[Rfam]
RNA sequence: CUCUUAUCAAGAGAGGUGGAGGGAAAGGGCCCUGUGAAACCCGGCAACCUGUAUAUGCAAGGUGCCAAUUCCUGUAGAGUUAUUUUCUACGAGAUAAGAA
Numbered sequence: 001c002u003c004u005u006a007u008c009a010a011g012a013g014a015g016g017u018g019g020a021g022g023g024a025a026a027g028g029g030c031c032c033u034g035u036g037a038a039a040c041c042c043g044g045c046a047a048c049c050u051g052u053a054u055a056u057g058c059a060a061g062g063u064g065c066c067a068a069u070u071c072c073u074g075u076a077g078a079g080u081u082a083u084u085u086u087c088u089a090c091g092a093g094a095u096a097a098g099a100a
Stems, first nucleotide, its partner, number of pairs: 002099007013042001015041003021032003027073003043066004048062002050059003070092001075089005